Shown here is a 381-nucleotide part of an RNA from Thermoplasmatales archaeon A-plasma, a member of the family "Archaeal large subunit ribosomal RNA". NCBI's taxonomy places the organism under Archaea, Methanobacteriati, Thermoplasmatota, Thermoplasmata, Thermoplasmatales. The family is grouped with related families in Rfam's "LSU clan". The base pairs follow the family's consensus structure, which is taken from published work. The family has 91 seed sequences and 2,955 matches in Rfam 15.1. A reference for the family is Cannone et al. (2002), "The comparative RNA web (CRW) site: an online database of comparative sequence and structure information for ribosomal, intron, and other RNAs", BMC Bioinformatics.
RNA sequence: AAAAGUAGCAGAAUAGAAUUGUGAGAAUCAAUUCCGCCGAAAGGGCUAAGGGUUCCUUGGCAAUGUUCGUCAGCCGAGGGUUAGUCGAUCCUAAGGUGGUCCCUAACAGGAAACCACCGAAAGGGAAGCUGGUUAAUAUUCCAGCACCUCGAGCGUUUUGCCAUAUAAUUGGACUUUGGGAUAUUGGAAGUACGGGUGACAACGUAUUUGCAAGUAUAAUCUGGUGGAGAAUCGUAAUGAUGAGAAGCCGGAGAAAGCUUGUGAGUCCCCCUAUGGGGAUUUCUUAGAUUUCUGGAGUCUGUGAAAGAAUUGUAUGGGUCAAGUUCGAGUUCGUACCAAGAACCGACACAGGUGCCCCUGGAUGAGAAGUCCAAGGCGUUU
Dot-bracket structure: ...............((((((.......))))))((((....((((...((...((((((...((.....)).))))))......(((.((...((((((.((.....))..))))))....))...(((((........)))))..(((((((.............(((..(((((((((..(.(((((((((........))))))...((((.....(((((.....(((.....))).....))))).....)))).....................))).)...))))))))).........)))............))))))).)))..)).....((......)).)))).((((.......)))).))))...
Numbered sequence: 001a002a003a004a005g006u007a008g009c010a011g012a013a014u015a016g017a018a019u020u021g022u023g024a025g026a027a028u029c030a031a032u033u034c035c036g037c038c039g040a041a042a043g044g045g046c047u048a049a050g051g052g053u054u055c056c057u058u059g060g061c062a063a064u065g066u067u068c069g070u071c072a073g074c075c076g077a078g079g080g081u082u083a084g085u086c087g088a089u090c091c092u093a094a095g096g097u098g099g100u101c102c103c104u105a106a107c108a109g110g111a112a113a114c115c116a117c118c119g120a121a122a123g124g125g126a127a128g129c130u131g132g133u134u135a136a137u138a139u140u141c142c143a144g145c146a147c148c149u150c151g152a153g154c155g156u157u158u159u160g161c162c163a164u165a166u167a168a169u170u171g172g173a174c175u176u177u178g179g180g181a182u183a184u185u186g187g188a189a190g191u192a193c194g195g196g197u198g199a200c201a202a203c204g205u206a207u208u209u210g211c212a213a214g215u216a217u218a219a220u221c222u223g224g225u226g227g228a229g230a231a232u233c234g235u236a237a238u239g240a241u242g243a244g245a246a247g248c249c250g251g252a253g254a255a256a257g258c259u260u261g262u263g264a265g266u267c268c269c270c271c272u273a274u275g276g277g278g279a280u281u282u283c284u285u286a287g288a289u290u291u292c293u294g295g296a297g298u299c300u301g302u303g304a305a306a307g308a309a310u311u312g313u314a315u316g317g318g319u320c321a322a323g324u325u326c327g328a329g330u331u332c333g334u335a336c337c338a339a340g341a342a343c344c345g346a347c348a349c350a351g352g353u354g355c356c357c358c359u360g361g362a363u364g365a366g367a368a369g370u371c372c373a374a375g376g377c378g379u380u381u
Stems, first nucleotide, its partner, number of pairs: 016034006035378004043357004050337002055079006064072002086333003090124002095118006102110002128145005148329007168310003173298009184286001186284003189208006212260004221251005231241003343352002359373004